[Rfam]
RNA sequence: UGUGGAUCUGCGCUGGGAGCCACUGUAGGUCGUCCGAACGGGCGGCAGCCGCGUAACGCGGUGGGAUCCUACAGCCCAGGACCCGCGAUGAU
Numbered sequence: 001u002g003u004g005g006a007u008c009u010g011c012g013c014u015g016g017g018a019g020c021c022a023c024u025g026u027a028g029g030u031c032g033u034c035c036g037a038a039c040g041g042g043c044g045g046c047a048g049c050c051g052c053g054u055a056a057c058g059c060g061g062u063g064g065g066a067u068c069c070u071a072c073a074g075c076c077c078a079g080g081a082c083c084c085g086c087g088a089u090g091a092u
Base pairs, nucleotide, nucleotide: 001087002086003085004084005083007081011080013079014078015077016076023074024073025072026071027070028069029046030045031044032043033042034041035040049061050060051059052058